[Rfam]
RNA: LOOT RNA
RNA sequence: GACCUAAACUCACUUUGUGGGCAUGGUCGUAAAUACGAACAAACAUAGAGAUGGCUCUCUCGUCUUUGGUAUGUUUGUUCGUCAAUAGCUGAAAGGUUAUUGGAUCCCGCAAGGGGUC
Numbered sequence: 001g002a003c004c005u006a007a008a009c010u011c012a013c014u015u016u017g018u019g020g021g022c023a024u025g026g027u028c029g030u031a032a033a034u035a036c037g038a039a040c041a042a043a044c045a046u047a048g049a050g051a052u053g054g055c056u057c058u059c060u061c062g063u064c065u066u067u068g069g070u071a072u073g074u075u076u077g078u079u080c081g082u083c084a085a086u087a088g089c090u091g092a093a094a095g096g097u098u099a100u101u102g103g104a105u106c107c108c109g110c111a112a113g114g115g116g117u118c
Base pairs, nucleotide, nucleotide: 001028002027003026004025009021010020011019012018013017036081037080038079039078040077041076042075043074044073045072046071048066049065050064051063052062053061083102084101085100086099087098088097089096090095103118104117105116106115107114108113